Source information:
The family of this 48-nucleotide RNA is "uup RNA". The base pairs follow the family's consensus structure, which is taken from published work. Rfam's curators put it in the seed alignment.
RNA sequence: GAAGAGUCUGCUCCGGGCAAAUAAAAACGAUGAAACGUUGUGCGGAGC
Numbered sequence: 001g002a003a004g005a006g007u008c009u010g011c012u013c014c015g016g017g018c019a020a021a022u023a024a025a026a027a028c029g030a031u032g033a034a035a036c037g038u039u040g041u042g043c044g045g046a047g048c
Stems, first nucleotide, its partner, number of pairs: 011047005017041003